RNA sequence: CGCGCUUCGUCAGGAGAGAGCCCCGCGCGACGGGGCCGCCGAAGGCGCAGGAUUCCGCAAAGGCUUCCGAACGCUCAGGCAAAAGGACUGGCGGCACGCC
Numbered sequence: 001c002g003c004g005c006u007u008c009g010u011c012a013g014g015a016g017a018g019a020g021c022c023c024c025g026c027g028c029g030a031c032g033g034g035g036c037c038g039c040c041g042a043a044g045g046c047g048c049a050g051g052a053u054u055c056c057g058c059a060a061a062g063g064c065u066u067c068c069g070a071a072c073g074c075u076c077a078g079g080c081a082a083a084a085g086g087a088c089u090g091g092c093g094g095c096a097c098g099c100c
Base pairs, nucleotide, nucleotide: 007094008093009092010091011090012089013088020036021035022034023033038080039079040078041076042075045074046073047072050068051067
Shown here is a 100-nucleotide sequence from Pseudacidovorax intermedius, a member of the family "Glycine riboswitch aptamer". The organism belongs to Pseudacidovorax, within Bacteria.